TPP riboswitch aptamer (THI element): a 103-nucleotide RNA sequence from Oceanobacillus oncorhynchi. From the family's description: Vitamin B(1) in its active form thiamin pyrophosphate (TPP) is an essential coenzyme that is synthesised by coupling of pyrimidine and thiazole moieties in bacteria. The previously detected thiamin-regulatory element, thi box was extended, resulting in a new, highly conserved RNA secondary structure, the THI element, which is widely distributed in eubacteria and also occurs in some archaea. Analysis of operon structures identified a large number of new candidate thiamin-regulated genes, mostly transporters, in various prokaryotic organisms. The THI element is a riboswitch that directly binds to TPP to regulate gene expression through a variety of mechanisms in archaea, bacteria and eukaryotes. through a variety of mechanisms in archaea, bacteria and eukaryotes.
[Rfam]
RNA sequence: AUUAUGCACUGGGGGAGCUGUUAAGCUGAGAAAGACAUUCUGUAUUGACCCUUGGCACCCGAACUAGAUAAUCCUAGCGUGGGGAAUGUGCAGUCGUUAAGGA
Numbered sequence: 001a002u003u004a005u006g007c008a009c010u011g012g013g014g015g016a017g018c019u020g021u022u023a024a025g026c027u028g029a030g031a032a033a034g035a036c037a038u039u040c041u042g043u044a045u046u047g048a049c050c051c052u053u054g055g056c057a058c059c060c061g062a063a064c065u066a067g068a069u070a071a072u073c074c075u076a077g078c079g080u081g082g083g084g085a086a087u088g089u090g091c092a093g094u095c096g097u098u099a100a101g102g103a
Stems, first nucleotide, its partner, number of pairs: 006091004011052004016046001017026003033045001035043003058083004064077004